Notes: The family of this 118-nucleotide RNA from Anisodus acutangulus is "U5 spliceosomal RNA". About the family: U5 RNA is a component of both types of known spliceosome. Pairs were carried over by alignment from the consensus structure, which is taken from published work. It scores 88 bits against the family's covariance model. The source organism's lineage runs through Eukaryota, Gunneridae, lamiids, Hyoscyameae and Anisodus.
RNA sequence: AGCCACUCAGUGAGCACAAAGCGAACUAUUCUUUCGCCUUUUACUAAAGAAUACCGUGUGCGUGCUGCAAUUAGUGGCAUACGCCAAUUUUUGGAGGGUUCUCUUCUCCGAGGAGACC
Numbered sequence: 001a002g003c004c005a006c007u008c009a010g011u012g013a014g015c016a017c018a019a020a021g022c023g024a025a026c027u028a029u030u031c032u033u034u035c036g037c038c039u040u041u042u043a044c045u046a047a048a049g050a051a052u053a054c055c056g057u058g059u060g061c062g063u064g065c066u067g068c069a070a071u072u073a074g075u076g077g078c079a080u081a082c083g084c085c086a087a088u089u090u091u092u093g094g095a096g097g098g099u100u101c102u103c104u105u106c107u108c109c110g111a112g113g114a115g116a117c118c
Base pairs, nucleotide, nucleotide: 003077004076005075006074008067009066010065011064012063014061015060016059017058018057027053028052029051030050031049032048033047034046097118098117099116100115102113